[Rfam]
Shown here is an 86-nucleotide sequence from Daucus carota, a member of the family "Small nucleolar RNA Z159/U59".

RNA sequence: GCUUCUAGUGAUGAUUUCAAAAAUACUUUCGUUCUUCCGAGAUUAAAUUCUGUGAGGAAGAUCAUGGAGACCUGAACUGAAGAAGC
Numbered sequence: 001g002c003u004u005c006u007a008g009u010g011a012u013g014a015u016u017u018c019a020a021a022a023a024u025a026c027u028u029u030c031g032u033u034c035u036u037c038c039g040a041g042a043u044u045a046a047a048u049u050c051u052g053u054g055a056g057g058a059a060g061a062u063c064a065u066g067g068a069g070a071c072c073u074g075a076a077c078u079g080a081a082g083a084a085g086c
Base pairs, nucleotide, nucleotide: 003084004083005082006081
Record summary: It is annotated as a C/D-box small nucleolar RNA. Gene Ontology terms of the family: nucleolus and RNA processing. Pairs were carried over by alignment from the consensus structure, which was predicted with PFOLD. It scores 57 bits against the family's covariance model.